[Rfam]
RNA sequence: CCUGUGGACCGUUAUACAAACGAAAGUAGUCUAAAGACCGAUACGUCUUUGAUAAAAUCGGACGGUAUGAAGCAGGAA
Dot-bracket structure: (((((...(((((.......(((.....(((..(((((......))))).)))....))))))))......)))))..

Background: Rfam assigns this 78-nucleotide RNA sequence to the family "RAGATH-18 RNA". The sequence is in the family's curated seed alignment.